A member of the RNA family "TPP riboswitch aptamer (THI element)" from Tengunoibacter tsumagoiensis, 105 nucleotides long. It scores 65 bits against the family's covariance model.
[Rfam]
RNA sequence: AAAAGCUGCUAGGGGUGCCGCAAGGCUGAGAGGCGGGUAACUGCCGACCCUUUAAGAGAACCUGAUCUGGAUAAUACCAGCGGAGGGAAGCGGCGAUGGUCAGAC
Numbered sequence: 001a002a003a004a005g006c007u008g009c010u011a012g013g014g015g016u017g018c019c020g021c022a023a024g025g026c027u028g029a030g031a032g033g034c035g036g037g038u039a040a041c042u043g044c045c046g047a048c049c050c051u052u053u054a055a056g057a058g059a060a061c062c063u064g065a066u067c068u069g070g071a072u073a074a075u076a077c078c079a080g081c082g083g084a085g086g087g088a089a090g091c092g093g094c095g096a097u098g099g100u101c102a103g104a105c
Base pairs, nucleotide, nucleotide: 006093007092008091009090010089011051012050013049014048017026018025019024033044034043035042036041061086062085063084067080068079069078070077
Dot-bracket structure: .....(((((((((..(((....)))......((((....))))...)))).........(((...((((......))))...)))..)))))............

The organism belongs to Tengunoibacter, within Bacteria.